[Rfam]
RNA sequence: GGGAAAUGAUGAGUGGUCAAAACUCACCUAAUUCCAUGUGAGAAUUGGGUGUCCAGCCUAAGCCUGGUUACGACAAUAUGGGCACUCCCAUUUGUUACCACCACCU
Dot-bracket structure: ...(.........((((.....(((((..........)))))....(((((((...........((((.......)).))))))))).........)))).....)